[Rfam]
RNA sequence: GGUCAAGAGGACCAGCGCCACGCCCUCCGGCGUGCUGGUCCGGCAACCGCGCGACGCGCACGGUGCCCCCGGAGGAAGACCCGCCCGCGCCGCCCGGCGCGAGAAGAGCGCUGA
Dot-bracket structure: ((((....(.((((((....((........)).))))))).(((..(((.((.....)).))).)))..........))))..(.((((((....)))))).)...........

About this RNA
SAM (S-adenosyl methionine) riboswitch aptamer: a 114-nucleotide sequence from Georgenia soli. It scores 60 bits against the family's covariance model. Taxonomically the source falls in Georgenia (Bacteria, Bacillati, Actinomycetes, Allobogoriellaceae). Pairs were carried over by alignment from the consensus structure, which is taken from published work. About the family: SAM-IV is a mRNA element that regulates gene expression via direct sensing of S-adenosylmethionine (SAM or AdoMet). SAM-IV riboswitches share conserved nucleotide positions with the previously described SAM-I riboswitches sequence analysis and molecular recognition experiments suggest that SAM-I and SAM-IV riboswitches share similar ligand binding sites, but have different scaffolds.